[Rfam]
RNA sequence: CUUGGUGUGUAUAACUGGCGUACGUGGCAAACCACGGGGGAGUACAUGCUUAUAUAGUCGCACGCCUGGGCAAAGUAU
Dot-bracket structure: ...(((((((((..(([[[[[..((((....))))..))..)))))))))....(.(((..]]]]]..))).).....

Record summary: Rfam assigns this 78-nucleotide RNA sequence from Halalkalibacter suaedae to the family "ZMP/ZTP riboswitch aptamer (pfl RNA motif)". Pairs were carried over by alignment from the consensus structure, which is taken from published work. Taxonomically the source falls in Halalkalibacter (Bacteria, Bacillati, Bacilli, Bacillaceae). The match comes from Rfam's covariance-model search (53 bits).